Shown here is a 107-nucleotide RNA sequence from Canis lupus, a member of the family "mir-8834 microRNA precursor family". The organism belongs to Canis lupus, within Eukaryota. The match comes from Rfam's covariance-model search (62 bits).
RNA sequence: UGGAGUAACAACCACAGUGGCAGCGGCCAGCUCUAGAGCCUUGGAGUCAGCUCCCGCAGUAACUCCGGAGCUCUCUGUCUACAGGGGCCUGGAUGCUCCAGGGGCGG
Numbered sequence: 001u002g003g004a005g006u007a008a009c010a011a012c013c014a015c016a017g018u019g020g021c022a023g024c025g026g027c028c029a030g031c032u033c034u035a036g037a038g039c040c041u042u043g044g045a046g047u048c049a050g051c052u053c054c055c056g057c058a059g060u061a062a063c064u065c066c067g068g069a070g071c072u073c074u075c076u077g078u079c080u081a082c083a084g085g086g087g088c089c090u091g092g093a094u095g096c097u098c099c100a101g102g103g104g105c106g107g
Stems, first nucleotide, its partner, number of pairs: 002099006009091002012087002019079005025074002029072006036065002041059003